[Rfam]
RNA sequence: AGGCCUGUAGAGAGAAGCAGGGUCUGAUCCAUAGCCUCUGUGGCAGCUGUUAAUCAGCCGUUGCUUCUCUCUUUUACUCCA
Numbered sequence: 001a002g003g004c005c006u007g008u009a010g011a012g013a014g015a016a017g018c019a020g021g022g023u024c025u026g027a028u029c030c031a032u033a034g035c036c037u038c039u040g041u042g043g044c045a046g047c048u049g050u051u052a053a054u055c056a057g058c059c060g061u062u063g064c065u066u067c068u069c070u071c072u073u074u075u076a077c078u079c080c081a
Stems, first nucleotide, its partner, number of pairs: 009072012022059001024057005032049004

Rfam assigns this 81-nucleotide RNA from Pipistrellus kuhlii to the family "mir-574 microRNA precursor family". Gene Ontology terms of the family: RISC complex and miRNA-mediated post-transcriptional gene silencing. The family has 6 seed sequences and 4,084 matches in Rfam 15.1.